[Rfam]
Description
The record is a 451-nucleotide sequence from Parechovirus ahumpari, which matches "Aphthovirus internal ribosome entry site (IRES)" in Rfam. Rfam's curators put it in the seed alignment. Its family is annotated with ribosome binding in the Gene Ontology. Rfam's curators write: This family represents the internal ribosome entry site (IRES) of the the aphthoviruses.
RNA sequence: UGGCAGAUGGCGUGCCAUAACUCUACUAGUGGGAUACCACGCUUGUGGACCUUAUGCCCACACAGCCAUCCUCUAGUAAGUUUGUAAGACGUCUGAUGACGUGUGGGAAAACACUAGAAAUAUUAACUUGCUGUAAAGCAUCCUACUGCCAGCGGAAUCACAUCUGGUAACAGAUGCCUCUGGGGCCAAAAGCCAAGGUUUAGCAGACCCUUUAGGAUUGGUUCAAUACCUGAGUUAAUAUGGAAAGUGCUUAGUACCUGCUGACUUGGUAGUAGUGCAAACACUAGUUGUAUGGCCCGCGAAGGAUGCCCAGAAGGUACCCGUAGGUAACAAGUGACACUAUGGAUCUGAUCUGGGGCUGGAUACCUCUAUCUUGGUGAUCCAGUUAAAAAACGUCUAGCGGGCCAAGCCCAGGGGGGAUCCCUGGUUUCCCUAUUUUUAUUAUUAUCAC
Numbered sequence: 001u002g003g004c005a006g007a008u009g010g011c012g013u014g015c016c017a018u019a020a021c022u023c024u025a026c027u028a029g030u031g032g033g034a035u036a037c038c039a040c041g042c043u044u045g046u047g048g049a050c051c052u053u054a055u056g057c058c059c060a061c062a063c064a065g066c067c068a069u070c071c072u073c074u075a076g077u078a079a080g081u082u083u084g085u086a087a088g089a090c091g092u093c094u095g096a097u098g099a100c101g102u103g104u105g106g107g108a109a110a111a112c113a114c115u116a117g118a119a120a121u122a123u124u125a126a127c128u129u130g131c132u133g134u135a136a137a138g139c140a141u142c143c144u145a146c147u148g149c150c151a152g153c154g155g156a157a158u159c160a161c162a163u164c165u166g167g168u169a170a171c172a173g174a175u176g177c178c179u180c181u182g183g184g185g186c187c188a189a190a191a192g193c194c195a196a197g198g199u200u201u202a203g204c205a206g207a208c209c210c211u212u213u214a215g216g217a218u219u220g221g222u223u224c225a226a227u228a229c230c231u232g233a234g235u236u237a238a239u240a241u242g243g244a245a246a247g248u249g250c251u252u253a254g255u256a257c258c259u260g261c262u263g264a265c266u267u268g269g270u271a272g273u274a275g276u277g278c279a280a281a282c283a284c285u286a287g288u289u290g291u292a293u294g295g296c297c298c299g300c301g302a303a304g305g306a307u308g309c310c311c312a313g314a315a316g317g318u319a320c321c322c323g324u325a326g327g328u329a330a331c332a333a334g335u336g337a338c339a340c341u342a343u344g345g346a347u348c349u350g351a352u353c354u355g356g357g358g359c360u361g362g363a364u365a366c367c368u369c370u371a372u373c374u375u376g377g378u379g380a381u382c383c384a385g386u387u388a389a390a391a392a393a394c395g396u397c398u399a400g401c402g403g404g405c406c407a408a409g410c411c412c413a414g415g416g417g418g419g420a421u422c423c424c425u426g427g428u429u430u431c432c433c434u435a436u437u438u439u440u441a442u443u444a445u446u447a448u449c450a451c
Stems, first nucleotide, its partner, number of pairs: 024078006037065001042056001044054002080282006087276001090272001092271001096267001098265001100263001102260002105257001110252002112249002120241004128234002131138002141217005148210001149183004154178002162175005184194003197208001199206002218232001220230002296404005309357004315349004322344005359385006365378002408429004414424004